The family of this 103-nucleotide sequence from Prunus dulcis is "MIR6274 microRNA precursor family". Gene Ontology terms of the family: miRNA-mediated post-transcriptional gene silencing and RISC complex.
RNA sequence: GGAUAGUAUUGUUUUGCUAUCCCCCAACCAAUAACACAAUGACACGUGAAAAAGUUAUCUCAUGUGUCAUUGUGUUAUUGACUGGGAAUAGCAAAAAAUAUUA
Numbered sequence: 001g002g003a004u005a006g007u008a009u010u011g012u013u014u015u016g017c018u019a020u021c022c023c024c025c026a027a028c029c030a031a032u033a034a035c036a037c038a039a040u041g042a043c044a045c046g047u048g049a050a051a052a053a054g055u056u057a058u059c060u061c062a063u064g065u066g067u068c069a070u071u072g073u074g075u076u077a078u079u080g081a082c083u084g085g086g087a088a089u090a091g092c093a094a095a096a097a098a099u100a101u102u103a
Stems, first nucleotide, its partner, number of pairs: 012096009023086004029080021051058001